The family of this 104-nucleotide sequence from Psychrosphaera saromensis is "t44 RNA".
It is annotated as a small RNA.
This family consists of a number of bacterial RNA genes of between 135 and 170 bases in length. The t44 gene has been identified in several species of enteric bacteria but homologs have also been identified in Pseudomonas and Coxiella species.
RNA sequence: UUAAUUUAAAUUAAAUAACACACAUAUAUCGACACAUUCCCCGGGGUGCUGAAGCGUUGCAAAACGCCAAAGUCGGAUAGGAAUGGGAUAUAUGGAGGCCUAAC
Numbered sequence: 001u002u003a004a005u006u007u008a009a010a011u012u013a014a015a016u017a018a019c020a021c022a023c024a025u026a027u028a029u030c031g032a033c034a035c036a037u038u039c040c041c042c043g044g045g046g047u048g049c050u051g052a053a054g055c056g057u058u059g060c061a062a063a064a065c066g067c068c069a070a071a072g073u074c075g076g077a078u079a080g081g082a083a084u085g086g087g088a089u090a091u092a093u094g095g096a097g098g099c100c101u102a103a104c
Stems, first nucleotide, its partner, number of pairs: 023094008035085005041076003048073003
Overview
The base pairs follow the family's consensus structure, which was predicted with LocARNA.